[Rfam]
RNA sequence: CCUGAGCUUCGCGGGGGAAGGUGAGAACCUUCGACCCAGGUUCGCGUCGAGCCUCGCGAAACAACGAUGUGCAGUAUCGGCCCGCAGGGUGAGGCGCAACGCUCCGAAUCAUUCUUCAUCCCCCCCUU
Dot-bracket structure: ..............(.((((((.........((.((....(.((...((.......))......((((((...))))))...)).).))))...................).))))).).........
Shown here is a 128-nucleotide RNA sequence from Sodalis glossinidius, a member of the family "RtT RNA". The literature on the family includes a 1991 paper in Nucleic Acids Res by Bosl and Kersten, "A novel RNA product of the tyrT operon of Escherichia coli". Gene Ontology term of the family: cellular response to amino acid starvation. Rfam's curators put it in the seed alignment. Rfam describes the family as follows. This family represents a bacterial cis-regulatory element known as RtT RNA. The exact function of RtT is unknown although it is thought that it may be involved in changing the cellular response in relation to amino acid starvation.